The family of this 111-nucleotide RNA sequence from Rhodoplanes roseus is "SAM-I/IV (S-adenosyl methionine) riboswitch aptamer". Taxonomically the source falls in Rhodoplanes (Bacteria, Pseudomonadati, Alphaproteobacteria, Nitrobacteraceae).
Nucleotides: 111
Base pairs, nucleotide, nucleotide: 006083007082008081009080010079015032016031017030018029019028020027033059034058035057038055039054040053041051042050043049045107046106047105085095086094087093088092
Number, partner (000 for none) and nucleotide at each position: 001000g002000u003000c004000c005000u006083g007082c008081a009080u010079c011000a012000a013000g014000a015032g016031u017030u018029g019028g020027g021000g022000c023000g024000a025000c026000g027020c028019c029018c030017a031016a032015c033059g034058c035057c036000a037000a038055c039054c040053u041051g042050c043049c044000g045107a046106c047105c048000g049043g050042g051041c052000a053040a054039g055038g056000u057035g058034g059033c060000a061000c062000u063000c064000c065000c066000u067000c068000g069000a070000a071000c072000g073000g074000g075000g076000g077000a078000g079010g080009a081008u082007g083006u084000g085095g086094c087093c088092g089000a090000g091000c092088c093087g094086g095085c096000a097000a098000c099000c100000a101000a102000a103000c104000g105047g106046g107045u108000c109000c110000a111000a